[Rfam]
Rfam assigns this 73-nucleotide RNA from Allocoleopsis franciscana to the family "Cyano-1 RNA". The family's consensus secondary structure is taken from published work.

RNA sequence: GUGGGUGUGAGGAGAAAGGAAGAAAAAGCGCUUGGGGUCGAAACACGGCAAGACUCCUGAGCGCUUUUUCAGU
Dot-bracket structure: ..............(........(((((((...((((((............))).)))...))))))))....